[Rfam]
RNA sequence: CUCAAGGGAUAAAUUUGUCCCACUUAGUUGUGAGGCUAAGUUUAAAAACUGGGUGAAUUGCAAGGAUUCCUCCAAGUAGGAGGGUAUUUGCAGCGAAGCUCUUCUCGGCAUAAGCUUUUAGCUUCAGGGUAGAGAACGUUCAACGACUAGACAGUGAGUAAUGCCAACAAUAAACUGUCCACGAGCGCCCAGCACUUAAUGGGGAUAAGGGGGGUCAAAUCUAGAAGUUAUAGUAUACGAAACAUACUUUCUCUUUAAAUUUAUGAAUAUUAGUCCUAAUAGUAAAGGUGAGCUAAAAGCCAAAUUAGUAGGUUUAACUAAUGUGCAGUUUGAGGCAGCCAUAGGCUUAAUUUUAGGUGACGUCUCCAUUCAAUCCCAAAAAUAAGGGAAUAACGUAUCGGCUUAAAUUUGAAUGGGGUGACCUUAAAGAUGAUGCUUUCCAUGUGUAUGAUUUAUUCAAGGAGUGGAUCCUUACUGAACCUAAAGCUCAAACUCGCAUCAACAGCAAUGGGAAUGAAGUUAUCACUUGGCGCUUCCAAACCUUUAGCCAUGAAGCAUUUAACCCUUUAGCUGAACUAUUCCUCAGGGUCCAGUUUUCCAAGGGAAAACAAGGGAAAAAAAUGGUUAAAGACGGACUAAUAAGGGAUCACCUUACUCCAAUACUCAUAAAAAAUACCCCCCACAUUAAGUUGAUGACAUAGUCUGAACUUGAAGGUGACUUCAAG
Numbered sequence: 001c002u003c004a005a006g007g008g009a010u011a012a013a014u015u016u017g018u019c020c021c022a023c024u025u026a027g028u029u030g031u032g033a034g035g036c037u038a039a040g041u042u043u044a045a046a047a048a049c050u051g052g053g054u055g056a057a058u059u060g061c062a063a064g065g066a067u068u069c070c071u072c073c074a075a076g077u078a079g080g081a082g083g084g085u086a087u088u089u090g091c092a093g094c095g096a097a098g099c100u101c102u103u104c105u106c107g108g109c110a111u112a113a114g115c116u117u118u119u120a121g122c123u124u125c126a127g128g129g130u131a132g133a134g135a136a137c138g139u140u141c142a143a144c145g146a147c148u149a150g151a152c153a154g155u156g157a158g159u160a161a162u163g164c165c166a167a168c169a170a171u172a173a174a175c176u177g178u179c180c181a182c183g184a185g186c187g188c189c190c191a192g193c194a195c196u197u198a199a200u201g202g203g204g205a206u207a208a209g210g211g212g213g214g215u216c217a218a219a220u221c222u223a224g225a226a227g228u229u230a231u232a233g234u235a236u237a238c239g240a241a242a243c244a245u246a247c248u249u250u251c252u253c254u255u256u257a258a259a260u261u262u263a264u265g266a267a268u269a270u271u272a273g274u275c276c277u278a279a280u281a282g283u284a285a286a287g288g289u290g291a292g293c294u295a296a297a298a299g300c301c302a303a304a305u306u307a308g309u310a311g312g313u314u315u316a317a318c319u320a321a322u323g324u325g326c327a328g329u330u331u332g333a334g335g336c337a338g339c340c341a342u343a344g345g346c347u348u349a350a351u352u353u354u355a356g357g358u359g360a361c362g363u364c365u366c367c368a369u370u371c372a373a374u375c376c377c378a379a380a381a382a383u384a385a386g387g388g389a390a391u392a393a394c395g396u397a398u399c400g401g402c403u404u405a406a407a408u409u410u411g412a413a414u415g416g417g418g419u420g421a422c423c424u425u426a427a428a429g430a431u432g433a434u435g436c437u438u439u440c441c442a443u444g445u446g447u448a449u450g451a452u453u454u455a456u457u458c459a460a461g462g463a464g465u466g467g468a469u470c471c472u473u474a475c476u477g478a479a480c481c482u483a484a485a486g487c488u489c490a491a492a493c494u495c496g497c498a499u500c501a502a503c504a505g506c507a508a509u510g511g512g513a514a515u516g517a518a519g520u521u522a523u524c525a526c527u528u529g530g531c532g533c534u535u536c537c538a539a540a541c542c543u544u545u546a547g548c549c550a551u552g553a554a555g556c557a558u559u560u561a562a563c564c565c566u567u568u569a570g571c572u573g574a575a576c577u578a579u580u581c582c583u584c585a586g587g588g589u590c591c592a593g594u595u596u597u598c599c600a601a602g603g604g605a606a607a608a609c610a611a612g613g614g615a616a617a618a619a620a621a622u623g624g625u626u627a628a629a630g631a632c633g634g635a636c637u638a639a640u641a642a643g644g645g646a647u648c649a650c651c652u653u654a655c656u657c658c659a660a661u662a663c664u665c666a667u668a669a670a671a672a673a674u675a676c677c678c679c680c681c682a683c684a685u686u687a688a689g690u691u692g693a694u695g696a697c698a699u700a701g702u703c704u705g706a707a708c709u710u711g712a713a714g715g716u717g718a719c720u721u722c723a724a725g
Stems, first nucleotide, its partner, number of pairs: 003017003027037001029035001049192004054187002059092006069083005093139002100132001106127001108125001110123001143704001145703005195689007710723005
A member of the RNA family "Group I catalytic intron" from Funneliformis geosporum, 725 nucleotides long. Pairs were carried over by alignment from the consensus structure, which is taken from published work. A search with the family's covariance model found it, with a score of 62 bits. Group I catalytic introns are large self-splicing ribozymes. They catalyse their own excision from mRNA, tRNA and rRNA precursors in a wide range of organisms. The core secondary structure consists of 9 paired regions (P1-P9). These fold to essentially two domains - the P4-P6 domain (formed from the stacking of P5, P4, P6 and P6a helices) and the P3-P9 domain (formed from the P8, P3, P7 and P9 helices). Taxonomically the source falls in Funneliformis (Eukaryota, Fungi, Glomeromycota, Glomeraceae).